[Rfam]
c-di-GMP-II-GAG riboswitch aptamer: an 81-nucleotide RNA sequence. It is one of the family's seed sequences. Clan: c-di-GMP_II riboswitch clan. For this family Rfam cites "Bioinformatic analysis of riboswitch structures uncovers variant classes with altered ligand specificity" (Weinberg et al., Proc Natl Acad Sci U S A, 2017). Rfam links the family to the GO terms regulation of gene expression and cyclic-di-GMP binding.
RNA sequence: UGACACGCGGGAGGCAUUGACGCGUGACCCCAACCUCGGUCGCCGGGAUCAUGCCGAGCCACUGGCGAGACCGACCCGCGC
Numbered sequence: 001u002g003a004c005a006c007g008c009g010g011g012a013g014g015c016a017u018u019g020a021c022g023c024g025u026g027a028c029c030c031c032a033a034c035c036u037c038g039g040u041c042g043c044c045g046g047g048a049u050c051a052u053g054c055c056g057a058g059c060c061a062c063u064g065g066c067g068a069g070a071c072c073g074a075c076c077c078g079c080g081c
Stems, first nucleotide, its partner, number of pairs: 006080006013060003022054006029047001038072002040068005
Dot-bracket structure: .....((((((.(((......((((((.(........[[[[[[[..).))))))...)))...]]]]]..]]..)))))).